[Rfam]
RNA: Archaeal small subunit ribosomal RNA, nucleotides 1 to 529
Organism: Fervidicoccus fontis
Nucleotides: 529
Stems, first nucleotide, its partner, number of pairs: 004020005022519010033409009042367001048365003052362003057086003062083009093320003102245008112237002117233007125159004134149006164190008173182002197225010246292003253283002258280008295317004299310004322343005345356004373399001375398003381394005412429007434454007462508006475502004484491002
Number, partner (000 for none) and nucleotide at each position: 001000a002000c003000u004020c005019c006018g007017g008016u009000u010000g011000a012000u013000c014000c015000u016008g017007c018006c019005g020004g021000a022519c023518c024517c025516g026515a027514c028513u029512g030511c031510u032000a033409u034408c035407g036406g037405g038404g039403u040402g041401g042367c043000a044000c045000u046000a047000a048365g049364c050363c051000a052362u053361g054360g055000g056000a057086g058085u059084c060000g061000c062083a063082c064081a065080u066079c067078c068077c069076a070075c071000c072000g073000c074000u075070g076069u077068g078067g079066g080065g081064u082063g083062u084059g085058g086057c087000g088000c089000a090000c091000g092000g093320c094319u095318g096000a097000g098000u099000a100000a101000c102245a103244c104243g105242u106241g107240g108239c109238u110000a111000a112237c113236c114000u115000a116000c117233c118232c119231u120230c121229g122228g123227g124000a125159u126158g127157g128156g129000g130000a131000u132000a133000a134149c135148u136147c137146c138145g139144g140000g141000a142000a143000a144139c145138u146137g147136g148135a149134g150000c151000u152000a153000a154000u155000a156128c157127c158126c159125a160000a161000u162000a163000a164190g165189c166188g167187g168186g169185g170184a171183g172000g173182c174181c175000u176000g177000g178000a179000a180000c181174g182173g183171u184170u185169c186168u187167c188166c189165g190164c191000c192000u193000a194000a195000a196000u197225g198224g199223a200222u201221g202220g203219a204218a205217g206216g207000g208000g209000g210000u211000u212000a213000a214000c215000g216206c217205c218204u219203u220202c221201u222200a223199u224198c225197c226000g227123c228122c229121c230120g231119a232118g233117g234000a235000u236113g237112g238109g239108g240107c241106u242105g243104c244103g245102u246292c247291c248290c249000a250000u251000c252000a253283g254282g255000c256000u257000g258280u259279u260278g261277g262276c263275g264274g265273g266000g267000u268000a269000a270000u271000g272000g273265c274264c275263c276262g277261c278260c279259a280258a281000a282254c283253c284000u285000a286000u287000a288000a289000c290248g291247g292246g293000u294000a295317g296316g297315g298314g299310c300309c301308g302307u303000g304000a305000g306000a307302g308301c309300g310299g311000g312000a313000g314298c315297c316296c317295c318095c319094a320093g321000a322343u323342g324341g325340g326339c327000a328000c329000u330000g331000a332000g333000a334000c335000a336000a337000g338000g339326g340325c341324c342323c343322a344000g345356g346355c347354c348353c349000u350000a351000c352000g353348g354347g355346g356345c357000g358000c359000a360054c361053c362052a363050g364049g365048c366000g367042g368000g369000a370000a371000a372000c373399c374000u375398c376397c377396g378000c379000a380000a381394u382393g383392c384391g385390g386000u387000a388000a389000c390385c391384c392383g393382u394381g395000a396377c397376g398375g399373g400000g401041u402040c403039a404038c405037c406036c407035c408034g409033a410000g411000u412429g413428c414427u415426c416425u417424c418423c419000u420000u421000u422000u423418g424417g425416a426415g427414a428413g429412c430000u431000u432000u433000u434454c435453c436452c437451u438450g439449c440448u441000g442000c443000a444000g445000u446000a447000a448440g449439g450438c451437a452436g453435g454434g455000g456000u457000a458000a459000u460000a461000a462508g463507u464506g465505g466504g467503g468000g469000g470000c471000a472000a473000g474000u475502c476501u477500g478499g479000u480000g481000u482000c483000a484491g485490c486000c487000g488000c489000c490485g491484c492000g493000g494000u495000a496000a497000u498000a499478c500477c501476a502475g503467c504466c505465c506464c507463a508462c509000g510031a511030g512029u513028g514027g515026u516025c517024g518023g519022g520000a521000c522000g523000g524000u525000u526000a527000u528000u529000g